[Rfam]
Rfam assigns this 85-nucleotide sequence from Catagonus wagneri to the family "mir-15 microRNA precursor family". Rfam 15.1 lists 2,045 matches to the family in 649 species. This family represents the related mir-15a and mir-15b sequences. The family is grouped with related families in Rfam's "mir-15 clan". On this family, see Calin et al., Proc Natl Acad Sci U S A 2002: "Frequent deletions and down-regulation of micro- RNA genes miR15 and miR16 at 13q14 in chronic lymphocytic leukemia". The family's consensus secondary structure was predicted with RNAalifold.

RNA sequence: GCCCCCCUGGCUCUAGCAGCACAGAAAUAUUGGCACUGGGCAGAGAGUCUGCCAGUAUUGGCUGUGCUGCCCCAGGCAGGGUGGU
Numbered sequence: 001g002c003c004c005c006c007c008u009g010g011c012u013c014u015a016g017c018a019g020c021a022c023a024g025a026a027a028u029a030u031u032g033g034c035a036c037u038g039g040g041c042a043g044a045g046a047g048u049c050u051g052c053c054a055g056u057a058u059u060g061g062c063u064g065u066g067c068u069g070c071c072c073c074a075g076g077c078a079g080g081g082u083g084g085u
Base pairs, nucleotide, nucleotide: 001085002084003083005081006080016070017069018068019067020066021065022064023063026059027058028057029056030055031054032053033052034051035050